[Rfam]
RNA sequence: UACAGAGUAGGGCUUUGUGCGUUAAGUGUCUUGUGGACGGGGAGUUGCCACAGGAACGAAAAGGAUUUUCCUUGCGGUACAAACCCCGCAUCCCGCUGUC
Numbered sequence: 001u002a003c004a005g006a007g008u009a010g011g012g013c014u015u016u017g018u019g020c021g022u023u024a025a026g027u028g029u030c031u032u033g034u035g036g037a038c039g040g041g042g043a044g045u046u047g048c049c050a051c052a053g054g055a056a057c058g059a060a061a062a063g064g065a066u067u068u069u070c071c072u073u074g075c076g077g078u079a080c081a082a083a084c085c086c087c088g089c090a091u092c093c094c095g096c097u098g099u100c
Stems, first nucleotide, its partner, number of pairs: 002099004010087003014083006020076003026057002029055008040093003044089001061073004
RNA: THF (Tetrahydrofolate) riboswitch aptamer
Organism: Anaerotignum neopropionicum